[Rfam]
Bacterial small subunit ribosomal RNA: a 351-nucleotide part of an RNA from Croceibacter atlanticus. Gene Ontology terms of the family: ribosome and structural constituent of ribosome. A reference for the family is Cannone et al. (2002), "The comparative RNA web (CRW) site: an online database of comparative sequence and structure information for ribosomal, intron, and other RNAs", BMC Bioinformatics.
Nucleotides: 351
Stems, first nucleotide, its partner, number of pairs: 001314003009311001011198004016192001018191003022085007030078002032074009045063007089185003092181006100174007107151001111147008122133003159166002203244006212238002217233004255310006263288011292299002316343003325336004
Number, partner (000 for none) and nucleotide at each position: 001314g002313g003312u004000u005000u006000a007000a008000a009311g010000g011198g012197u013196c014195c015000g016192c017000a018191g019190g020189c021000g022085g023084c024083c025082a026081g027080a028079u029000a030078a031077g032074u033073c034072a035071g036070u037069g038068g039067u040066g041000a042000a043000a044000u045063u046062c047061c048060g049059u050058g051057g052000c053000u054000c055000a056000a057051c058050c059049a060048c061047g062046g063045a064000a065000c066040u067039g068038c069037c070036a071035u072034u073033g074032a075000u076000a077031c078030u079028g080027u081026u082025u083024g084023g085022c086000u087000u088000g089185a090184a091183u092181c093180a094179g095178u096177u097176c098000g099000a100174g101173g102172a103171u104170g105169c106168c107151g108000g109000a110000a111147u112146g113145u114144g115143u116142g117141g118140u119000g120000u121000a122133g123132c124131g125000g126000u127000g128000a129000a130000a131124u132123g133122c134000a135000u136000a137000g138000a139000u140118a141117u142116c143115a144114c145113a146112c147111a148000g149000a150000a151107c152000a153000c154000c155000a156000a157000u158000u159166g160165c161000g162000a163000a164000g165160g166159c167000a168106g169105g170104u171103g172102u173101c174100c175000a176097g177096a178095a179094c180093u181092g182000u183091a184090u185089u186000g187000a188000c189020g190019c191018u192016g193000a194000u195014g196013g197012a198011c199000g200000a201000a202000a203244g204243c205242g206241u207240g208239g209000g210000u211000a212238g213237c214000g215000a216000a217233c218232a219231g220230g221000a222000u223000u224000a225000g226000a227000u228000a229000c230220c231219c232218u233217g234000g235000u236000a237213g238212u239208c240207c241206a242205c243204g244203c245000c246000g247000u248000a249000a250000a251000c252000g253000a254000u255310g256309g257308u258307c259306a260305c261000u262000a263288g264287c265286u266285g267284u268283c269282c270281g271280g272279a273278c274000u275000u276000a277000g278273g279272u280271c281270u282269g283268g284267g285266u286265g287264g288263c289000c290000a291000a292299g293298c294000g295000a296000a297000a298293g299292u300000g301000a302000u303000a304000a305260g306259u307258g308257a309256c310255c311009c312003a313002c314001c315000u316343g317342g318341g319000g320000a321000g322000u323000a324000c325336g326335u327334u328333c329000g330000c331000a332000a333328g334327a335326a336325u337000g338000a339000a340000a341318c342317u343316c344000a345000a346000a347000g348000g349000a350000a351000u

It scores 1539 bits against the family's covariance model.